[Rfam]
RNA sequence: GAGUCUGGCAGGUCUGCGAGUCAGUGUGCGGCGAGCCACACGGGCGUAAGAAACCUGACCAGGGGUUGGACACAUGGACCAUGCCGAACUGAGGCACGGUCCAUGUGUCCAACCUUGACCGGUCGCCCUAUACGCGGAGCCUUAUUACCGCUGAUGCAUCCCGGUAUAGCCAUACCGGGCUCGCUGCGGAAGUGCGCAGUCAUGCGUUUGAGAGCUUCGCGUCUGAGCGAUCCGGUGGAGCAGGCCUCCCAGGACCCGAAAGGUGGUGAUCUAGGCCUGGGCAGGGCGAAGCCUGGCUAACGCUUGGUGGAGGCCCGAAGGAGUGCUGACGUGCAAAUCGCUUCUCUGACCUGGGCCUAGUGGCGAAAGACCAAUCGAACCACCUAGUAGCUGGUU
Numbered sequence: 001g002a003g004u005c006u007g008g009c010a011g012g013u014c015u016g017c018g019a020g021u022c023a024g025u026g027u028g029c030g031g032c033g034a035g036c037c038a039c040a041c042g043g044g045c046g047u048a049a050g051a052a053a054c055c056u057g058a059c060c061a062g063g064g065g066u067u068g069g070a071c072a073c074a075u076g077g078a079c080c081a082u083g084c085c086g087a088a089c090u091g092a093g094g095c096a097c098g099g100u101c102c103a104u105g106u107g108u109c110c111a112a113c114c115u116u117g118a119c120c121g122g123u124c125g126c127c128c129u130a131u132a133c134g135c136g137g138a139g140c141c142u143u144a145u146u147a148c149c150g151c152u153g154a155u156g157c158a159u160c161c162c163g164g165u166a167u168a169g170c171c172a173u174a175c176c177g178g179g180c181u182c183g184c185u186g187c188g189g190a191a192g193u194g195c196g197c198a199g200u201c202a203u204g205c206g207u208u209u210g211a212g213a214g215c216u217u218c219g220c221g222u223c224u225g226a227g228c229g230a231u232c233c234g235g236u237g238g239a240g241c242a243g244g245c246c247u248c249c250c251a252g253g254a255c256c257c258g259a260a261a262g263g264u265g266g267u268g269a270u271c272u273a274g275g276c277c278u279g280g281g282c283a284g285g286g287c288g289a290a291g292c293c294u295g296g297c298u299a300a301c302g303c304u305u306g307g308u309g310g311a312g313g314c315c316c317g318a319a320g321g322a323g324u325g326c327u328g329a330c331g332u333g334c335a336a337a338u339c340g341c342u343u344c345u346c347u348g349a350c351c352u353g354g355g356c357c358u359a360g361u362g363g364c365g366a367a368a369g370a371c372c373a374a375u376c377g378a379a380c381c382a383c384c385u386a387g388u389a390g391c392u393g394g395u396u
Stems, first nucleotide, its partner, number of pairs: 005252004010247008020045003025040004049056002063116003067112001070108011118236005123230003255394002258391001262384006271360011282348001284316004291308003295304003320345004325341002328339002362372002